The record is a 116-nucleotide RNA from Aphidius gifuensis, which matches "Potassium channel RNA editing signal" in Rfam.
[Rfam]
RNA sequence: AUUGCAGAUAUGGUGACAUGGUUCCUGAAACAAUUGCUGGUAAAGUUGUUGGAGGUGUUUGUUCAUUGAGCGGAGUAUUGGUGAUAGCUCUGCCUGUGCCUGUUAUUGUCAGUAAU
Numbered sequence: 001a002u003u004g005c006a007g008a009u010a011u012g013g014u015g016a017c018a019u020g021g022u023u024c025c026u027g028a029a030a031c032a033a034u035u036g037c038u039g040g041u042a043a044a045g046u047u048g049u050u051g052g053a054g055g056u057g058u059u060u061g062u063u064c065a066u067u068g069a070g071c072g073g074a075g076u077a078u079u080g081g082u083g084a085u086a087g088c089u090c091u092g093c094c095u096g097u098g099c100c101u102g103u104u105a106u107u108g109u110c111a112g113u114a115a116u
Stems, first nucleotide, its partner, number of pairs: 001116002004113002010109004015104004020099001023096001039079004052064002

It scores 78 bits against the family's covariance model.